[Rfam]
RNA sequence: UGUCUCCUCCAACUCUCUCCAAGAUUGGAUUUCACCCGCUACCGCAAGGCUAGCGGGUUUUUUUU
Numbered sequence: 001u002g003u004c005u006c007c008u009c010c011a012a013c014u015c016u017c018u019c020c021a022a023g024a025u026u027g028g029a030u031u032u033c034a035c036c037c038g039c040u041a042c043c044g045c046a047a048g049g050c051u052a053g054c055g056g057g058u059u060u061u062u063u064u065u
Stems, first nucleotide, its partner, number of pairs: 008029005013023002034058008
RNA: Betaproteobacteria toxic small RNA